[Rfam]
RNA sequence: CGAGGGAAAGAAGACCUGUUGAGCUUGACUCUAGUCCGACUUUGUGAAAUGACUUGAGAGGUGUAGGAUAAGUGGGAGCUUCGGCGAAGGUGAAAUACCACUACUUUUAACGUUAUUUUACUUAUUCCCAGUGAAUCGGAGGCGGGCGCUGCCCCUCUUUUUUGGACCCAAGGCCGCCGGCGCCGAUCCGAGCGGAAGACAUUGUCGAGUGGGGGAGUUUGGGCUGGGGCGGCACAUGCGUUAAAAGAUAACGCAGGGUGUCCUAAGAUGAGCUCAACGAGACAGAAAUCUCGUGUGGAACAAAAGGGUAAAAGCUCGUUUGAUUCUGAUUUCCGAGUACGAAUACGAGCCAGUGAAAGCGUGGCCUAUCGAUCCUUUAGACCUUCGAAUUUGAAGCUAGAGGUGUCGGAAAAGUUACCACGGGGGAUAAGCGGCUUGUGGCAGCCAAGCGUUCAUAAGCGGCGUUGCUUUUUGAUCCUUCGAUGUCGGCUCUUCCUAUCAUUGUGAAGCGAGAAUUCACCAAGUGUUGGAUUGUUCACCCACCAAUAGGGAACGUGAGCUGGGUUUAGACCGUCGUGAGACGAGGGUUAGUUUUACCCU
Number, nucleotide and partner (000 for none) at each position: 001c000002g000003a000004g600005g599006g598007a000008a595009a594010g000011a000012a000013g000014a000015c000016c423017u422018g421019u000020u420021g419022a416023g415024c414025u413026u412027g000028a218029c217030u216031c215032u000033a000034g000035u209036c000037c207038g206039a205040c204041u000042u000043u000044g121045u120046g119047a118048a117049a116050u115051g114052a113053c112054u110055u109056g108057a107058g106059a105060g104061g000062u000063g000064u000065a000066g000067g000068a000069u000070a000071a102072g101073u100074g099075g098076g000077a000078g085079c084080u000081u000082c000083g000084g079085c078086g000087a000088a000089g000090g000091u000092g000093a000094a000095a000096u000097a000098c075099c074100a073101c072102u071103a000104c060105u059106u058107u057108u056109a055110a054111c000112g053113u052114u051115a050116u049117u048118u047119u046120a045121c044122u000123u000124a000125u197126u196127c195128c194129c000130a000131g193132u000133g000134a000135a000136u000137c190138g189139g188140a187141g000142g000143c000144g000145g153146g152147c151148g000149c000150u000151g147152c146153c145154c000155c000156u000157c000158u000159u000160u000161u000162u000163u000164g000165g000166a000167c000168c000169c000170a000171a000172g184173g183174c182175c000176g000177c000178c000179g000180g000181c000182g174183c173184c172185g000186a000187u140188c139189c138190g137191a000192g000193c131194g128195g127196a126197a125198g000199a000200c000201a000202u000203u000204g040205u039206c038207g037208a000209g035210u000211g000212g000213g000214g000215g031216a030217g029218u028219u000220u000221g235222g000223g233224c232225u231226g000227g000228g000229g000230c000231g225232g224233c223234a000235c221236a259237u258238g000239c256240g254241u253242u000243a000244a000245a000246a000247g000248a000249u000250a000251a000252c000253g241254c240255a000256g239257g000258g237259u236260g000261u000262c364263c363264u000265a000266a000267g000268a319269u318270g317271a316272g315273c314274u299275c298276a000277a294278c293279g292280a291281g290282a289283c000284a000285g000286a000287a000288a000289u282290c281291u280292c279293g278294u277295g000296u000297g000298g275299a274300a309301c308302a000303a000304a000305a000306g000307g000308g301309u300310a000311a000312a000313a000314g273315c272316u271317c270318g269319u268320u000321u000322g000323a000324u349325u348326c347327u000328g000329a344330u343331u342332u341333c000334c000335g000336a000337g000338u000339a000340c000341g332342a331343a330344u329345a000346c000347g326348a325349g324350c000351c361352a000353g360354u359355g000356a000357a000358a000359g354360c353361g351362u000363g263364g262365c000366c000367u000368a000369u000370c000371g000372a000373u000374c000375c402376u401377u400378u399379a398380g397381a000382c000383c396384u395385u394386c393387g000388a000389a000390u000391u000392u000393g386394a385395a384396g383397c380398u379399a378400g377401a376402g375403g000404u000405g000406u000407c000408g000409g000410a000411a000412a026413a025414g024415u023416u022417a000418c000419c021420a020421c018422g017423g016424g000425g000426g000427a000428u000429a000430a000431g000432c000433g000434g476435c000436u474437u000438g473439u000440g469441g468442c467443a466444g465445c464446c000447a000448a000449g460450c459451g000452u000453u000454c000455a000456u000457a000458a000459g450460c449461g000462g000463c000464g445465u444466u443467g442468c441469u440470u000471u000472u000473u438474g436475a000476u434477c000478c000479u000480u000481c000482g000483a000484u000485g000486u000487c563488g561489g560490c559491u558492c555493u552494u551495c550496c549497u548498a000499u000500c526501a525502u000503u000504g520505u519506g518507a517508a516509g000510c000511g000512a000513g000514a000515a000516u508517u507518c506519a505520c504521c000522a000523a000524g000525u501526g500527u000528u542529g541530g540531a000532u538533u000534g000535u000536u000537c000538a532539c000540c530541c529542a528543c000544c000545a000546a000547u000548a497549g496550g495551g494552a493553a000554c000555g492556u000557g000558a491559g490560c489561u488562g000563g487564g000565u000566u000567u000568a000569g589570a588571c587572c586573g582574u581575c580576g000577u000578g000579a000580g575581a574582c573583g000584a000585g000586g572587g571588u570589u569590a000591g000592u000593u000594u009595u008596a000597c000598c006599c005600u004